Source information:
This 69-nucleotide RNA from Biomphalaria glabrata belongs to the Rfam family "mir-71 microRNA precursor family".

RNA sequence: UUGUUGUGAAAGACAUGGGUAGUGAGAUGUUAAAUUCACUCACCUUACUACUCUGUCUUUUGCAUUAAG
Numbered sequence: 001u002u003g004u005u006g007u008g009a010a011a012g013a014c015a016u017g018g019g020u021a022g023u024g025a026g027a028u029g030u031u032a033a034a035u036u037c038a039c040u041c042a043c044c045u046u047a048c049u050a051c052u053c054u055g056u057c058u059u060u061u062g063c064a065u066u067a068a069g
Stems, first nucleotide, its partner, number of pairs: 008061008017053003021049006028042002